The record is a 187-nucleotide sequence from Desulfitobacterium dichloroeliminans, which matches "glycine-GGAnGA riboswitch aptamer" in Rfam. Rfam links the family to the GO term glycine biosynthetic process. From the family's description: glycine-GGAnGA riboswitch is a variant of glycine riboswitch that have in common a U69A change. This riboswitch is associate with genes that encode either saccharopine dehydrogenase or amino acid transporters and other genes with not predicted function.
Nucleotides: 187
Stems, first nucleotide, its partner, number of pairs: 001111003010105008022036001024035004037090003043086001044084003050077001053075008114185005123139001125138004140173003146169004
Number, partner (000 for none) and nucleotide at each position: 001111u002110c003109g004000a005000a006000u007000g008000a009000u010105u011104c012103c013102a014101g015100u016099a017098g018000g019000a020000g021000a022036g023000a024035c025034u026033c027032a028000u029000a030000g031000g032027u033026g034025a035024g036022c037090g038089c039088c040000g041000a042000a043086g044084g045083a046082g047000a048000a049000a050077c051000g052000g053075c054074c055073a056072g057071a058070a059069u060068g061000u062000c063000g064000c065000a066000u067000c068060u069059a070058u071057u072056c073055u074054g075053g076000g077050g078000g079000a080000a081000a082046c083045u084044c085000u086043c087000a088039g089038g090037c091000a092000a093000a094000a095000g096000u097000a098017c099016u100015g101014c102013u103012g104011g105010a106000a107000g108000a109003c110002g111001a112000a113000a114185c115184u116183c117182u118181g119000g120000a121000g122000a123139g124000c125138u126137u127136c128135u129000c130000a131000g132000a133000u134000g135128a136127g137126a138125a139123c140173a141172c142171c143000a144000a145000a146169g147168g148167g149166g150000u151000a152000g153000c154000c155000g156000c157000a158000a159000g160000g161000u162000a163000a164000u165000c166149u167148c168147u169146c170000a171142g172141g173140u174000u175000a176000a177000a178000g179000g180000a181118c182117a183116g184115a185114g186000g187000u

The organism belongs to Desulfitobacterium dichloroeliminans, within Bacteria. For this family Rfam cites "Bioinformatic analysis of riboswitch structures uncovers variant classes with altered ligand specificity" (Weinberg et al., Proc Natl Acad Sci U S A, 2017).